[Rfam]
RNA sequence: UAAAUGAAUAACAACCACCAUCGUAUAAUAUUGGGGAUAAGGCCCAAGAGUUUCUACCGGACUACCGUAAAUGGUCCGACUACGAGGUAAUUGCUAGAUUAA
Numbered sequence: 001u002a003a004a005u006g007a008a009u010a011a012c013a014a015c016c017a018c019c020a021u022c023g024u025a026u027a028a029u030a031u032u033g034g035g036g037a038u039a040a041g042g043c044c045c046a047a048g049a050g051u052u053u054c055u056a057c058c059g060g061a062c063u064a065c066c067g068u069a070a071a072u073g074g075u076c077c078g079a080c081u082a083c084g085a086g087g088u089a090a091u092u093g094c095u096a097g098a099u100u101a102a
Stems, first nucleotide, its partner, number of pairs: 019087001021085005029049001031047005058078007
The record is a 102-nucleotide RNA from Pontibacillus marinus, which matches "Purine riboswitch aptamer" in Rfam. The organism belongs to Pontibacillus marinus, within Bacteria.